Shown here is a 62-nucleotide RNA sequence from Thermomonospora echinospora, a member of the family "Actino-pnp RNA". A search with the family's covariance model found it, with a score of 76 bits.

[Rfam]
RNA sequence: GCCGGUCCUCGGUAGUGGCCUCCGGAUCGGCUCCGAUCCGUGGGCUUCGAUCGAAGACCGGC
Numbered sequence: 001g002c003c004g005g006u007c008c009u010c011g012g013u014a015g016u017g018g019c020c021u022c023c024g025g026a027u028c029g030g031c032u033c034c035g036a037u038c039c040g041u042g043g044g045c046u047u048c049g050a051u052c053g054a055a056g057a058c059c060g061g062c
Stems, first nucleotide, its partner, number of pairs: 001062007009054005017046005023040007